This 107-nucleotide sequence belongs to the Rfam family "Phenylalanine leader peptide". Rfam classes the family as a cis-regulatory leader. Rfam 15.1 lists 379 matches to the family in 290 species.
[Rfam]
RNA sequence: CAGCGUAUGUUUGUUUUCCGUUUUUUUUUUCGUUUUUUUACACCGCUGAAUUGGGUUUUUUUGACGUAAAAGAACGAAAAAAAAAACGGAAAAAAAUCAUUUUUUUC
Dot-bracket structure: ...............((((.((((((((((((((.((((...(((......)))(((.....)))..)))).)))))))))))))).))))...((...).).....

A search with the family's covariance model found it, with a score of 57 bits.